Rfam assigns this 65-nucleotide RNA sequence from Medicago truncatula to the family "MIR2629 microRNA precursor family".
The match comes from Rfam's covariance-model search (61 bits).
The base pairs follow the family's consensus structure, which was predicted with RNAalifold.
RNA sequence: UACGAAAAUGCCCUUCGAUAGUUAACUGCAGCCGGUUCCAUCGGCAGUUAACUGUCGAGGAAAGA
Dot-bracket structure: ............(.(((((((((((((((..............))))))))))))))).).....